[Rfam]
Notes: This 90-nucleotide RNA from Pseudodesulfovibrio senegalensis belongs to the Rfam family "Selenocysteine transfer RNA". It scores 83 bits against the family's covariance model. Pairs were carried over by alignment from the consensus structure, which is taken from published work. Lineage of the source: Bacteria > Thermodesulfobacteriota > Desulfovibrionia > Desulfovibrionaceae > Pseudodesulfovibrio.
RNA sequence: GGAAGCGUUUCGUCACCGGUGUGGCGCCCGGGCUUCAAACCCGGUGGGCGGGCUAACCCUCGCCGGUAGGUUCGACUCCUAUACGCUUCC
Number, nucleotide and partner (000 for none) at each position: 001g090002g089003a088004a087005g086006c085007g084008u083009u000010u000011c026012g025013u024014c023015a022016c021017c000018g000019g000020u000021g016022u015023g014024g013025c012026g011027c000028c044029c043030g042031g041032g040033c000034u000035u000036c000037a000038a000039a000040c032041c031042c030043g029044g028045u000046g000047g064048g063049c062050g061051g060052g000053c000054u000055a000056a000057c000058c000059c000060u051061c050062g049063c048064c047065g000066g000067u081068a080069g079070g078071u000072u000073c000074g000075a000076c000077u000078c070079c069080u068081a067082u000083a008084c007085g006086c005087u004088u003089c002090c001